RNA sequence: GUACAAUGAUGACCAUCUUAGGACACCUUUGUAGGUUACGACCGAUGAAAACAAACCAUUUCUGAGUACG
Numbered sequence: 001g002u003a004c005a006a007u008g009a010u011g012a013c014c015a016u017c018u019u020a021g022g023a024c025a026c027c028u029u030u031g032u033a034g035g036u037u038a039c040g041a042c043c044g045a046u047g048a049a050a051a052c053a054a055a056c057c058a059u060u061u062c063u064g065a066g067u068a069c070g
Stems, first nucleotide, its partner, number of pairs: 001069004

Rfam assigns this 70-nucleotide RNA from Carassius auratus to the family "Small nucleolar RNA SNORD58". Rfam classes the family as a C/D-box small nucleolar RNA. Rfam describes the family as follows. snoRNA U58 is found in introns 1, 3 and 6 of the ribosomal protein RPL17 gene in humans. A search with the family's covariance model found it, with a score of 58 bits. Gene Ontology terms of the family: RNA processing and nucleolus. The family's consensus secondary structure was predicted with PFOLD. The literature on the family includes a 2002 paper in Mol Cell Biol by Galardi et al., "Purified box C/D snoRNPs are able to reproduce site-specific 2'-O-methylation of target RNA in vitro". The organism belongs to Carassius, within Eukaryota.